A member of the RNA family "MIR162_1 microRNA precursor family" from Nicotiana tabacum, 95 nucleotides long. The literature on the family includes a 2002 paper in Genes Dev by Reinhart et al., "MicroRNAs in plants". Its Rfam clan is "MIR167 microRNA precursor clan". The organism belongs to Nicotiana, within Eukaryota.
RNA sequence: UUGAGGACACUGGAGGCAGCGGUUCAUCGAUCUGUUCCCUGAACGCAACAGCGCUGGGAAUCGGUCGAUAAACCUCUGCAUCCAGCGCUUAAACC
Numbered sequence: 001u002u003g004a005g006g007a008c009a010c011u012g013g014a015g016g017c018a019g020c021g022g023u024u025c026a027u028c029g030a031u032c033u034g035u036u037c038c039c040u041g042a043a044c045g046c047a048a049c050a051g052c053g054c055u056g057g058g059a060a061u062c063g064g065u066c067g068a069u070a071a072a073c074c075u076c077u078g079c080a081u082c083c084a085g086c087g088c089u090u091a092a093a094c095c
Stems, first nucleotide, its partner, number of pairs: 012083003017078003021074004026069007035060003